The family of this 92-nucleotide RNA sequence from Mangrovibacter sp. MFB070 is "Plasmid-encoded Shigella sRNA A".
RNA sequence: UGGCUGAGAAAAGAGUUUUAAUUUUAUUAAGAGACUAUGACAAUAAGUAGUCUCAGGCGACAGGCACAAAACGGAGAGAAACUAUGUUUGAA
Numbered sequence: 001u002g003g004c005u006g007a008g009a010a011a012a013g014a015g016u017u018u019u020a021a022u023u024u025u026a027u028u029a030a031g032a033g034a035c036u037a038u039g040a041c042a043a044u045a046a047g048u049a050g051u052c053u054c055a056g057g058c059g060a061c062a063g064g065c066a067c068a069a070a071a072c073g074g075a076g077a078g079a080a081a082c083u084a085u086g087u088u089u090g091a092a
Stems, first nucleotide, its partner, number of pairs: 001066002004063003008058001013054003017050002019046001021044003072090004077085001
The base pairs follow the family's consensus structure, which was predicted with RNAfold. Taxonomically the source falls in Mangrovibacter (Bacteria, Pseudomonadota, Enterobacterales, Enterobacteriaceae).